[Rfam]
Background: The record is an 85-nucleotide RNA sequence from Lonsdalea quercina, which matches "CyaR/Rye RNA" in Rfam. The family's RNA type in Rfam is small RNA. The source organism's lineage runs through Bacteria, Pseudomonadati, Pseudomonadota, Pectobacteriaceae and Lonsdalea.
RNA sequence: AAAACACAGAACGAAAAAUAAGCGUAGUAACACUACCAGGAACCACCUCUUUCGCCAGCUCAAUCUCCCUUGAGCUGGCUUUUUC
Numbered sequence: 001a002a003a004a005c006a007c008a009g010a011a012c013g014a015a016a017a018a019u020a021a022g023c024g025u026a027g028u029a030a031c032a033c034u035a036c037c038a039g040g041a042a043c044c045a046c047c048u049c050u051u052u053c054g055c056c057a058g059c060u061c062a063a064u065c066u067c068c069c070u071u072g073a074g075c076u077g078g079c080u081u082u083u084u085c
Base pairs, nucleotide, nucleotide: 038051039050040049041048054079055078056077057076058075059074060073061072062071063070